The record is a 64-nucleotide RNA sequence from Homo sapiens, which matches "mir-486 microRNA precursor family" in Rfam. Rfam links the family to the GO terms RISC complex and miRNA-mediated post-transcriptional gene silencing. Lineage of the source: Eukaryota > Euteleostomi > Primates > Haplorrhini > Homo.
[Rfam]
Nucleotides: 064
Base pairs, nucleotide, nucleotide: 005058006057007056008055009054010053011052012051013050014049015048017046018045019044020043021042022040
Number, partner (000 for none) and nucleotide at each position: 001000u002000c003000c004000u005058g006057u007056a008055c009054u010053g011052a012051g013050c014049u015048g016000c017046c018045c019044c020043g021042a022040g023000c024000u025000g026000g027000g028000c029000a030000g031000c032000a033000u034000g035000a036000a037000g038000g039000g040022c041000c042021u043020c044019g045018g046017g047000g048015c049014a050013g051012c052011u053010c054009a055008g056007u057006a058005c059000a060000g061000g062000a063000u064000g